Notes: The record is an 88-nucleotide sequence from Callorhinus ursinus, which matches "Small nucleolar RNA SNORD116" in Rfam. A search with the family's covariance model found it, with a score of 84 bits. The base pairs follow the family's consensus structure, which was predicted with PFOLD.
RNA sequence: GGAUCGAUGAUGACUCCCUACGAAUGCAUUCCUUGGAAAUCUGAACAAAAUGAGUGACAAUCCCUACUGUCGUCCUCAUCAGAGAUCC
Numbered sequence: 001g002g003a004u005c006g007a008u009g010a011u012g013a014c015u016c017c018c019u020a021c022g023a024a025u026g027c028a029u030u031c032c033u034u035g036g037a038a039a040u041c042u043g044a045a046c047a048a049a050a051u052g053a054g055u056g057a058c059a060a061u062c063c064c065u066a067c068u069g070u071c072g073u074c075c076u077c078a079u080c081a082g083a084g085a086u087c088c
Base pairs, nucleotide, nucleotide: 001088002087003086004085005084027056028055029054030053031052033048034047035046
A reference for the family is Cavaille et al. (2000), "Identification of brain-specific and imprinted small nucleolar RNA genes exhibiting an unusual genomic organization", Proc Natl Acad Sci U S A.